[Rfam]
RNA sequence: UCUUCAUUUCACGUGCUCUCUCGCUUCUCUGACCGGUGAGAGAGUGUGCGAAAUGAAGAGA
Numbered sequence: 001u002c003u004u005c006a007u008u009u010c011a012c013g014u015g016c017u018c019u020c021u022c023g024c025u026u027c028u029c030u031g032a033c034c035g036g037u038g039a040g041a042g043a044g045u046g047u048g049c050g051a052a053a054u055g056a057a058g059a060g061a
Stems, first nucleotide, its partner, number of pairs: 001059007010050001012048006019041004
Dot-bracket structure: (((((((..(.((((((.((((...............)))).)))))).)..)))))))..
Description:
Rfam assigns this 61-nucleotide sequence from Pristionchus pacificus to the family "mir-8364 microRNA precursor family". Rfam links the family to the GO terms miRNA-mediated post-transcriptional gene silencing and RISC complex. It scores 76 bits against the family's covariance model.